[Rfam]
RNA sequence: UUGAGGUGCAUUGUGAUUGCAUUGCAUGUUAAUUGAAGUGCAAUGUUUCUUCAGUGCAACUUAA
Numbered sequence: 001u002u003g004a005g006g007u008g009c010a011u012u013g014u015g016a017u018u019g020c021a022u023u024g025c026a027u028g029u030u031a032a033u034u035g036a037a038g039u040g041c042a043a044u045g046u047u048u049c050u051u052c053a054g055u056g057c058a059a060c061u062u063a064a
Stems, first nucleotide, its partner, number of pairs: 001064004006060001007058007015050001019046001021044007
RNA: mir-33 microRNA precursor family
Organism: Diabrotica virgifera